Source information:
The family of this 88-nucleotide RNA from Handroanthus impetiginosus is "small nucleolar RNA snoR114". It is annotated as a C/D-box small nucleolar RNA. The source organism's lineage runs through Eukaryota, Embryophyta, Spermatophyta, Crescentiina and Handroanthus. Gene Ontology terms of the family: nucleolus and RNA processing. A search with the family's covariance model found it, with a score of 56 bits.
RNA sequence: AAGUGAUGAUGAUUGCUGCACCCAUUGUGAUGGUUGGGUCCAUCGCUCCGUCUGCUCAUCAAGAUGAAAUUGUGGUGCUGCUGAGCUU
Number, nucleotide and partner (000 for none) at each position: 001a088002a087003g086004u085005g000006a000007u000008g000009a000010u000011g000012a000013u000014u000015g000016c000017u000018g000019c000020a000021c000022c000023c000024a000025u000026u000027g000028u000029g000030a000031u000032g000033g000034u000035u000036g000037g000038g000039u000040c000041c000042a000043u000044c000045g000046c000047u000048c000049c000050g000051u000052c000053u000054g000055c000056u000057c000058a000059u000060c000061a000062a000063g000064a000065u000066g000067a000068a000069a000070u000071u000072g000073u000074g000075g000076u000077g000078c000079u000080g000081c000082u000083g000084a000085g004086c003087u002088u001